[Rfam]
RNA: Bacterial RNase P class A
RNA sequence: GAAGCAAGCCAGACAGCCGCUGGCCGGUGCGUAAUGCCCGGCGGGAGGAAGGUCCGGACUCCAUAGAGCGGGGUGACGGUUAACGGCCGUCCGCCGAAAGUCCCUCGGGAUAUAAGGCGAGGAAUAGGGCCACAGAGACGAGCGUAUUAAGUUACGGUGAAACGCGGUAACCUCCACCUGGUGCAAUUCCAAAUAGGCACGCGAUGAUGUUGCUCGCGGAGCGUGCGGGUAGGAAGCUUGAGCGCCGGAGUAAUUCGGCGCCUAGAGGAAUGGCUGUCAUAGCGCGGGUUCGCCCGCGCCGUAACAAAAUCCGGCCUAUCGGCUUGCUUCAACU
Numbered sequence: 001g002a003a004g005c006a007a008g009c010c011a012g013a014c015a016g017c018c019g020c021u022g023g024c025c026g027g028u029g030c031g032u033a034a035u036g037c038c039c040g041g042c043g044g045g046a047g048g049a050a051g052g053u054c055c056g057g058a059c060u061c062c063a064u065a066g067a068g069c070g071g072g073g074u075g076a077c078g079g080u081u082a083a084c085g086g087c088c089g090u091c092c093g094c095c096g097a098a099a100g101u102c103c104c105u106c107g108g109g110a111u112a113u114a115a116g117g118c119g120a121g122g123a124a125u126a127g128g129g130c131c132a133c134a135g136a137g138a139c140g141a142g143c144g145u146a147u148u149a150a151g152u153u154a155c156g157g158u159g160a161a162a163c164g165c166g167g168u169a170a171c172c173u174c175c176a177c178c179u180g181g182u183g184c185a186a187u188u189c190c191a192a193a194u195a196g197g198c199a200c201g202c203g204a205u206g207a208u209g210u211u212g213c214u215c216g217c218g219g220a221g222c223g224u225g226c227g228g229g230u231a232g233g234a235a236g237c238u239u240g241a242g243c244g245c246c247g248g249a250g251u252a253a254u255u256c257g258g259c260g261c262c263u264a265g266a267g268g269a270a271u272g273g274c275u276g277u278c279a280u281a282g283c284g285c286g287g288g289u290u291c292g293c294c295c296g297c298g299c300c301g302u303a304a305c306a307a308a309a310u311c312c313g314g315c316c317u318a319u320c321g322g323c324u325u326g327c328u329u330c331a332a333c334u
Base pairs, nucleotide, nucleotide: 001330002329003328004327005326006325007324008323009322010321011319012278013277014276015275016274017273018272020045021044023042024041025040026039027038050317051316052315054314055313056312057311058310059183061181062180066215067214068213069212071179072178073177074176075175076090077089078088079087080086091121092119093118094117095116122174123173127172128171129168130167131166143156144155145154146153187235188234189233190232197226198225199224200223201222202221208218209217210216242261243260244259245258246257247256248255249254
Dot-bracket structure: ((((((((((((((((((.((.(((((..........))))).))....[[[.[[[[[(.((...[[[[.((((((((((.....)))))(((((....................)))).)((...(((((...........((((......)))).........)))..))))))))))).)...((((......((((((.....(((.]]]])))..)))))).....))))......((((((((....))))))))..........)))))))...............................]]]]]]]].).))))))))))....